[Rfam]
RNA: c-di-AMP riboswitch aptamer (ydaO/yuaA leader)
Nucleotides: 172
Stems, first nucleotide, its partner, number of pairs: 011157004018023001024152006034042001043137003051113002054110001116131004
Number, partner (000 for none) and nucleotide at each position: 001000c002000u003000u004000g005000a006000u007000g008000u009000a010000u011157c012156g013155c014154u015000c016000a017000a018023u019000c020000c021000a022000a023018a024152g025151c026150g027149g028148a029147g030000g031000a032000a033000c034042c035000a036000u037000u038000u039000a040000c041000c042034g043137g044136g045135g046000c047000u048000a049000a050000u051113c052112u053000u054110g055000c056000g057000c058000c059000a060000g061000c062000u063000a064000a065000a066000g067000c068000a069000a070000c071000g072000c073000u074000g075000a076000a077000a078000a079000u080000c081000g082000u083000c084000c085000a086000u087000g088000u089000a090000u091000c092000g093000u094000u095000u096000u097000u098000g099000u100000g101000c102000u103000u104000u105000a106000g107000c108000g109000c110054c111000c112052a113051g114000a115000a116131g117130g118129a119128c120000a121000u122000c123000u124000c125000u126000c127000a128119g129118u130117c131116c132000u133000c134000g135045c136044c137043c138000g139000u140000c141000a142000g143000c144000u145000a146000a147029c148028u149027u150026c151025g152024u153000c154014a155013g156012c157011g158000u159000u160000u161000g162000a163000g164000a165000g166000g167000a168000g169000c170000c171000u172000g